[Rfam]
RNA sequence: CGCCGAGUCCUGUCACCGGCUCAUGACCAGACGUUGCAGACAGGAGCGGGGGACCCACUUCCGGGUGACAGCGUGAUCGUCAUCCUCGGGGUGAAGCCGGACGGAAACCCCCCAGUAGCCGUGCGGCCGGGUAUGUACUCCGACCCGAACCCGACAGCUGACCUCGCAGGCGUUCCAGG
Numbered sequence: 001c002g003c004c005g006a007g008u009c010c011u012g013u014c015a016c017c018g019g020c021u022c023a024u025g026a027c028c029a030g031a032c033g034u035u036g037c038a039g040a041c042a043g044g045a046g047c048g049g050g051g052g053a054c055c056c057a058c059u060u061c062c063g064g065g066u067g068a069c070a071g072c073g074u075g076a077u078c079g080u081c082a083u084c085c086u087c088g089g090g091g092u093g094a095a096g097c098c099g100g101a102c103g104g105a106a107a108c109c110c111c112c113c114a115g116u117a118g119c120c121g122u123g124c125g126g127c128c129g130g131g132u133a134u135g136u137a138c139u140c141c142g143a144c145c146c147g148a149a150c151c152c153g154a155c156a157g158c159u160g161a162c163c164u165c166g167c168a169g170g171c172g173u174u175c176c177a178g179g
Base pairs, nucleotide, nucleotide: 001172002171003170004169008045009044010043011042012041013040014039046167047166048165049164050163051162056088089152090151091150097126098125099124129146130145131144132143
RNA: c-di-AMP riboswitch aptamer (ydaO/yuaA leader)